[Rfam]
RNA sequence: CGGGCAGUAUCUUAAUGAACUGCACCAGUUUGUUUGAAUGUGCAUAAACCAUAAUUUAAUCUGCCUAGAUCCACAAUUGGACAAGGACAGAGGG
Numbered sequence: 001c002g003g004g005c006a007g008u009a010u011c012u013u014a015a016u017g018a019a020c021u022g023c024a025c026c027a028g029u030u031u032g033u034u035u036g037a038a039u040g041u042g043c044a045u046a047a048a049c050c051a052u053a054a055u056u057u058a059a060u061c062u063g064c065c066u067a068g069a070u071c072c073a074c075a076a077u078u079g080g081a082c083a084a085g086g087a088c089a090g091a092g093g094g
Base pairs, nucleotide, nucleotide: 002026003025004023005022006021007020008019010018011017061090062089063088064086065085066084068082070081071080072079

The record is a 94-nucleotide RNA from Niallia circulans, which matches "pan motif" in Rfam. Lineage of the source: Bacteria > Bacillati > Caryophanales > Bacillaceae > Niallia. By type it is a cis-regulatory element. A search with the family's covariance model found it, with a score of 63 bits.